Guanidine-I riboswitch aptamer: a 97-nucleotide sequence from Herbidospora galbida.
RNA sequence: GUGAGGCGCACCUAGGGUUCCGCUCUUCGUGAGGCCUGGUCCGAGAGGUGCAGGCGGCCGCAAGGCCGUUCCACGGCGGGGGAAAAGCCCGGGAGAC
Number, nucleotide and partner (000 for none) at each position: 001g000002u000003g000004a000005g000006g000007c000008g051009c050010a049011c048012c047013u000014a000015g042016g041017g000018u000019u000020c039021c038022g036023c033024u032025c031026u000027u000028c000029g000030u000031g025032a024033g023034g000035c000036c022037u000038g021039g020040u000041c016042c015043g000044a000045g000046a000047g012048g011049u010050g009051c008052a000053g070054g069055c068056g067057g066058c065059c064060g000061c000062a000063a000064g059065g058066c057067c056068g055069u054070u053071c000072c092073a000074c095075g000076g000077c000078g090079g089080g088081g000082g000083a000084a000085a000086a000087g000088c080089c079090c078091g000092g072093g000094a000095g074096a000097c000
Its family is annotated with regulation of gene expression in the Gene Ontology. Taxonomically the source falls in Herbidospora (Bacteria, Actinomycetota, Actinomycetes, Streptosporangiales). Pairs were carried over by alignment from the consensus structure.